[Rfam]
Small nucleolar RNA U109: a 128-nucleotide sequence from Myotis myotis.
A search with the family's covariance model found it, with a score of 91 bits.
It is annotated as an H/ACA-box small nucleolar RNA.
Rfam links the family to the GO terms RNA processing and nucleolus.
The literature on the family includes a 2005 paper in Nucleic Acids Res by Gu et al., "A novel experimental approach for systematic identification of box H/ACA snoRNAs from eukaryotes".
RNA sequence: CUACAUGUGGAAUGGUCUCCUCCCCAUUCCUUUAGGAGCAGGAAUGUGUCUGUAACAUGCUACAUUAACAGAGUUCUAGGACUGCUAUUUUAGUAGAGGUUGAGCAGUAGUAUAUUUCUCCUACAAAA
Numbered sequence: 001c002u003a004c005a006u007g008u009g010g011a012a013u014g015g016u017c018u019c020c021u022c023c024c025c026a027u028u029c030c031u032u033u034a035g036g037a038g039c040a041g042g043a044a045u046g047u048g049u050c051u052g053u054a055a056c057a058u059g060c061u062a063c064a065u066u067a068a069c070a071g072a073g074u075u076c077u078a079g080g081a082c083u084g085c086u087a088u089u090u091u092a093g094u095a096g097a098g099g100u101u102g103a104g105c106a107g108u109a110g111u112a113u114a115u116u117u118c119u120c121c122u123a124c125a126a127a128a
Stems, first nucleotide, its partner, number of pairs: 004059005016042003020038004071120003081108002085104001086102002088097002